[Rfam]
RNA sequence: GUACAACAGAGGGUUUGUAAGGGCGGUCGGCUAGUCUCCCGGAGGGGAGGUGAUGCCUAUGGAUAUGUAUCAGACAUUAUCUUAAAUGAUGAUGUUUGGCACGUUCAUCGUGUUAAUCAUGUCGCAAAAGAAAUAGACCGCCCUCUGUAAAGGUGUGCGGUCUAUUUCUAAAUGGACGUACCCAAAGCCCUCCGCUCUUAAAGCGGCUGUUGUACAAGGCCGCAGGUGUACCAGCACCUGCG
Numbered sequence: 001g002u003a004c005a006a007c008a009g010a011g012g013g014u015u016u017g018u019a020a021g022g023g024c025g026g027u028c029g030g031c032u033a034g035u036c037u038c039c040c041g042g043a044g045g046g047g048a049g050g051u052g053a054u055g056c057c058u059a060u061g062g063a064u065a066u067g068u069a070u071c072a073g074a075c076a077u078u079a080u081c082u083u084a085a086a087u088g089a090u091g092a093u094g095u096u097u098g099g100c101a102c103g104u105u106c107a108u109c110g111u112g113u114u115a116a117u118c119a120u121g122u123c124g125c126a127a128a129a130g131a132a133a134u135a136g137a138c139c140g141c142c143c144u145c146u147g148u149a150a151a152g153g154u155g156u157g158c159g160g161u162c163u164a165u166u167u168c169u170a171a172a173u174g175g176a177c178g179u180a181c182c183c184a185a186a187g188c189c190c191u192c193c194g195c196u197c198u199u200a201a202a203g204c205g206g207c208u209g210u211u212g213u214a215c216a217a218g219g220c221c222g223c224a225g226g227u228g229u230a231c232c233a234g235c236a237c238c239u240g241c242g
Stems, first nucleotide, its partner, number of pairs: 001215005007209001009207001010191006020144004025138001027136001032053001034051001036049005062123006075088002098114004192206004221242009
Overview: The family of this 242-nucleotide RNA from Salibacterium qingdaonense is "BsrG". It is annotated as a small RNA. The family has 6 seed sequences and 614 matches in Rfam 15.1. Rfam describes the family as follows. bsrE, bsrG and bsrH pair through intermolecular interactions with antisense sRNAs. They form type I toxin/antitoxin system that includes an mRNA encoding for a short, toxic peptide (bsrE, bsrG and bsrH) and an antitoxin that is comprised of an antisense RNA. bsrG encodes a 39-amino-acid toxin, and the 180 nucleotide antisense sRNA called SR4 acts as the antitoxin (they overlap by 123 nucleotides). SR4 interaction with the 3'UTR of bsrG RNA promotes bsrG degradation and inhibits its translation. BsrG interferes with cell envelope biosynthesis, causes membrane invaginations and delocalisation of the cell wall synthesis and initiates autolysis. bsrE RNA encodes 30 amino-acid toxin peptide. Its antitoxin gene, SR5 overlaps by 112 nucleotides at the 3' end of bsrE. SR5 also overlaps bsrG from nucleotide 163 to 52 (Rfam overlap check). The antitoxin SR5 promotes bsrE degradation but unlike SR4 it does not directly inhibits toxin mRNA translation. Pairs were carried over by alignment from the consensus structure, which was predicted with WAR. For this family Rfam cites "A multistress responsive type I toxin-antitoxin system: bsrE/SR5 from the B. subtilis chromosome" (Muller et al., RNA Biol, 2016). The source organism's lineage runs through Bacteria, Bacillati, Bacillota, Bacillaceae and Salibacterium. Rfam links the family to the GO terms toxin activity and autolysis.